Rfam assigns this 66-nucleotide RNA sequence from Aleadryas rufinucha to the family "mir-196 microRNA precursor family". The base pairs follow the family's consensus structure, which was predicted with PFOLD. Taxonomically the source falls in Aleadryas (Eukaryota, Teleostomi, Coelurosauria, Corvoidea).
RNA sequence: UUAGGUAGUUUCAUGUUGUUGGGAUGGGCUUUUAGCUCGGCAACAAGAAACUGCCUUAAUUACGUC
Numbered sequence: 001u002u003a004g005g006u007a008g009u010u011u012c013a014u015g016u017u018g019u020u021g022g023g024a025u026g027g028g029c030u031u032u033u034a035g036c037u038c039g040g041c042a043a044c045a046a047g048a049a050a051c052u053g054c055c056u057u058a059a060u061u062a063c064g065u066c
Base pairs, nucleotide, nucleotide: 001058003056004055005054006053007052008051009050010049011048014045015044016043017042018041019040020039021038022037023036
Dot-bracket structure: (.(((((((((..((((((((((............))))))))))..))))))))).)........